[Rfam]
RNA sequence: UUAGAGGAUUUAGAGAUUUCUACUUGCGUACUUGGAGGAUUUGAAGACUUUAAUUUGCAUAAUUGAAUAAUUUGAAUACUUUAACU
Dot-bracket structure: ((((((..((((((...(((....((((...((((((..........))))))..)))).....)))...))))))..))))))..

The family of this 86-nucleotide RNA sequence from Solanum tuberosum is "MIR8024 microRNA precursor family". NCBI's taxonomy places the organism under Eukaryota, Streptophyta, asterids, lamiids, Solanum. Pairs were carried over by alignment from the consensus structure, which was predicted with RNAalifold. It scores 84 bits against the family's covariance model.